[Rfam]
RNA sequence: CAGAGCGGGGCCGUCAAACCGUUACCAUUACUGAGUUUAGUAAUGGUAAGGGUUCCACGGCCUUUGCUCAA
Numbered sequence: 001c002a003g004a005g006c007g008g009g010g011c012c013g014u015c016a017a018a019c020c021g022u023u024a025c026c027a028u029u030a031c032u033g034a035g036u037u038u039a040g041u042a043a044u045g046g047u048a049a050g051g052g053u054u055c056c057a058c059g060g061c062c063u064u065u066g067c068u069c070a071a
Stems, first nucleotide, its partner, number of pairs: 007064003011060003017054004022049012
A member of the RNA family "mir-451 microRNA precursor family" from Oryzias latipes, 71 nucleotides long. A search with the family's covariance model found it, with a score of 71 bits. Lineage of the source: Eukaryota > Opisthokonta > Eumetazoa > Ctenosquamata > Oryzias.